[Rfam]
Shown here is a 57-nucleotide sequence from Nodensvirus spm2, a member of the family "Glutamine riboswitch aptamer (glnA leader)". Gene Ontology term of the family: glutamine binding. For this family Rfam cites "Bacterial aptamers that selectively bind glutamine" (Ames and Breaker, RNA Biol, 2011). Taxonomically the source falls in Nodensvirus spm2 (Viruses, Heunggongvirae, Caudoviricetes, Pantevenvirales).
RNA sequence: AUCGUUCAUUCGCUAUUCGCAAAUAGCGAACGCAAAAGCCGACUGAAGGAACGGGAC
Numbered sequence: 001a002u003c004g005u006u007c008a009u010u011c012g013c014u015a016u017u018c019g020c021a022a023a024u025a026g027c028g029a030a031c032g033c034a035a036a037a038g039c040c041g042a043c044u045g046a047a048g049g050a051a052c053g054g055g056a057c
Base pairs, nucleotide, nucleotide: 003053004052005051006050007049009030010029011028012027013026014025015024016023017022033054037044038043